A member of the RNA family "putative aminoglycoside riboswitch / attI site" from Rubrivivax albus, 79 nucleotides long. The literature on the family includes a 2013 paper in Cell by Jia et al., "Riboswitch control of aminoglycoside antibiotic resistance". The source organism's lineage runs through Bacteria, Betaproteobacteria, Burkholderiales, Sphaerotilaceae and Rubrivivax. Rfam 15.1 lists 39 matches to the family in 38 species. The base pairs follow the family's consensus structure, which is taken from published work. From the family's description: Conserved RNA structure found upstream of the bacterial aminoglycosides antibiotic-resistant genes: aminoglycoside acetyl transferase (AAC) and aminoglycoside adenyl transferase (AAD). It has putative short open reading frame (ORF) that encode leader peptide upstream of the resistance gene. 75 nucleotide long sequence from the first ribosome binding site (SD1) up to the coding sequence was shown to have the regulatory role, and it was considered the minima functional RNA. Aminoglycosides bind to specific regions of AAC/AAD 5' leader and induce change in the RNA structure. The drug binding induces expression of the resistance protein. The leader RNA is widely distributed among antibiotic-resistant bacterial pathogens.
RNA sequence: GGAGCAGCAACGAUGUUACGCAGCAGGGCAGUCGCCCUAAAACAAAGCUAGAUGCCAGAUUUGGCGUUGCGUAUGCUCA
Number, nucleotide and partner (000 for none) at each position: 001g000002g000003a000004g076005c000006a017007g000008c015009a014010a000011c000012g000013a000014u009015g008016u000017u006018a000019c000020g000021c058022a000023g055024c054025a000026g037027g036028g035029c034030a000031g000032u000033c000034g029035c028036c027037c026038u050039a049040a000041a000042a000043c000044a000045a000046a000047g000048c000049u039050a038051g000052a000053u000054g024055c023056c000057a000058g021059a000060u000061u000062u073063g000064g070065c069066g000067u000068u000069g065070c064071g000072u000073a062074u000075g000076c004077u000078c000079a000